[Rfam]
RNA sequence: CGAUAAAACAAAAAAAGUCAAUGAAAACAAUGUUAGUAAAUACAUAUUGGUGGUGGCACCCGUUACAACUCCGACAGUCGUAAGGGAGCAGCGCUCGUAUGUAUAUAUGUAAUAUAUAGUAAAAAACAAAAAGAGCCCUGUC
Numbered sequence: 001c002g003a004u005a006a007a008a009c010a011a012a013a014a015a016a017g018u019c020a021a022u023g024a025a026a027a028c029a030a031u032g033u034u035a036g037u038a039a040a041u042a043c044a045u046a047u048u049g050g051u052g053g054u055g056g057c058a059c060c061c062g063u064u065a066c067a068a069c070u071c072c073g074a075c076a077g078u079c080g081u082a083a084g085g086g087a088g089c090a091g092c093g094c095u096c097g098u099a100u101g102u103a104u105a106u107a108u109g110u111a112a113u114a115u116a117u118a119g120u121a122a123a124a125a126a127c128a129a130a131a132a133g134a135g136c137c138c139u140g141u142c
Stems, first nucleotide, its partner, number of pairs: 036108003040104008049095004056089002059086003066080001068078003
Bacteroidete tryptophan peptide leader RNA: a 142-nucleotide RNA sequence from Bacteroides uniformis. The base pairs follow the family's consensus structure, which is taken from published work. The family's RNA type in Rfam is cis-regulatory leader. The source organism's lineage runs through Bacteria, Bacteroidota, Bacteroidia, Bacteroidales and Bacteroides uniformis.